[Rfam]
RNA sequence: CUUCGCUGAUGAGGUCCUCUUUGUGCCAUUGUGUCUGGGCCACCGAAGCCUGGUGUUGGAGCUGAGGAUCUGAGGAG
Numbered sequence: 001c002u003u004c005g006c007u008g009a010u011g012a013g014g015u016c017c018u019c020u021u022u023g024u025g026c027c028a029u030u031g032u033g034u035c036u037g038g039g040c041c042a043c044c045g046a047a048g049c050c051u052g053g054u055g056u057u058g059g060a061g062c063u064g065a066g067g068a069u070c071u072g073a074g075g076a077g
Base pairs, nucleotide, nucleotide: 001077002076003075004074
Shown here is a 77-nucleotide sequence from Vombatus ursinus, a member of the family "Small nucleolar RNA SNORD66". A reference for the family is Huttenhofer et al. (2001), "RNomics: an experimental approach that identifies 201 candidates for novel, small, non-messenger RNAs in mouse", EMBO J. Pairs were carried over by alignment from the consensus structure, which was predicted with RNAalifold. By type it is a C/D-box small nucleolar RNA. snoRNA HBII-142 is part of the C/D family of snoRNAs. It is the human orthologue of the mouse MBII-142 snoRNA and is predicted to guide 2'O-ribose methylation of small 18S rRNA at residue C1272. Rfam links the family to the GO terms nucleolus and RNA processing. The match comes from Rfam's covariance-model search (74 bits).